[Rfam]
RNA sequence: CUUAUCCUGCUAUUUACGAAGUCUCAAGUUUCACUUGGGAUACGCCCAAAAGAAUCUAUUUAGAUAUGUAAUGAGCAUAGCAAGAGUGGGGUUAA
Numbered sequence: 001c002u003u004a005u006c007c008u009g010c011u012a013u014u015u016a017c018g019a020a021g022u023c024u025c026a027a028g029u030u031u032c033a034c035u036u037g038g039g040a041u042a043c044g045c046c047c048a049a050a051a052g053a054a055u056c057u058a059u060u061u062a063g064a065u066a067u068g069u070a071a072u073g074a075g076c077a078u079a080g081c082a083a084g085a086g087u088g089g090g091g092u093u094a095a
Stems, first nucleotide, its partner, number of pairs: 002094001004092008013083001015082001017080001021041009
Background: Rfam assigns this 95-nucleotide sequence from Nostoc sp. PCC 7107 to the family "DUF3800-VIII RNA". The organism belongs to Nostoc, within Bacteria. The family's RNA type in Rfam is small RNA. Pairs were carried over by alignment from the consensus structure, which is taken from published work. Rfam's curators put it in the seed alignment.